[Rfam]
RNA sequence: GGCUGUAAUUCCGGCAAGUCGGAAGCGUUUCGGACGCGGGUUCGAUUCCCGCCACCUCCACCACAGGGGGGGUGUACUGGUUUCGACGGGGCGAUUGAGGAUGAGCAGGCAGCUCGAGAGGCGACGGACGUAAUCCGCGCAAAUCCAUAAUUGCCAAUGAUGAGCAAUUCGCUAUCGCUGCCUAA
Numbered sequence: 001g002g003c004u005g006u007a008a009u010u011c012c013g014g015c016a017a018g019u020c021g022g023a024a025g026c027g028u029u030u031c032g033g034a035c036g037c038g039g040g041u042u043c044g045a046u047u048c049c050c051g052c053c054a055c056c057u058c059c060a061c062c063a064c065a066g067g068g069g070g071g072g073u074g075u076a077c078u079g080g081u082u083u084c085g086a087c088g089g090g091g092c093g094a095u096u097g098a099g100g101a102u103g104a105g106c107a108g109g110c111a112g113c114u115c116g117a118g119a120g121g122c123g124a125c126g127g128a129c130g131u132a133a134u135c136c137g138c139g140c141a142a143a144u145c146c147a148u149a150a151u152u153g154c155c156a157a158u159g160a161u162g163a164g165c166a167a168u169u170c171g172c173u174a175u176c177g178c179u180g181c182c183u184a185a
Base pairs, nucleotide, nucleotide: 001114002113003112004111005110015103016102026093027092028091030089031088032087036052037051038050039049040048053074054073055072056071057070058069059068115130116129
The record is a 185-nucleotide sequence from a Betaproteobacteria bacterium, which matches "permuted transfer-messenger RNA" in Rfam. A reference for the family is Felden et al. (1997), "Probing the structure of the Escherichia coli 10Sa RNA (tmRNA)", RNA.